c-di-GMP-I riboswitch aptamer: an 86-nucleotide sequence from Rossellomorea aquimaris. Taxonomically the source falls in Rossellomorea (Bacteria, Bacillota, Bacilli, Caryophanales). A search with the family's covariance model found it, with a score of 70 bits.

RNA sequence: AUGUGAAAAGGGCAAAGCCAUUGAAAGGUGGUGACGCAAAGCUAUAGGGGCUUCUGUUCAAGUGACAAUGCCAGCCAGCUGCCGAG
Numbered sequence: 001a002u003g004u005g006a007a008a009a010g011g012g013c014a015a016a017g018c019c020a021u022u023g024a025a026a027g028g029u030g031g032u033g034a035c036g037c038a039a040a041g042c043u044a045u046a047g048g049g050g051c052u053u054c055u056g057u058u059c060a061a062g063u064g065a066c067a068a069u070g071c072c073a074g075c076c077a078g079c080u081g082c083c084g085a086g
Base pairs, nucleotide, nucleotide: 012037013036017032018031019030020029021028022027040080041079042078043077047076048075049072050071051070056066057065058064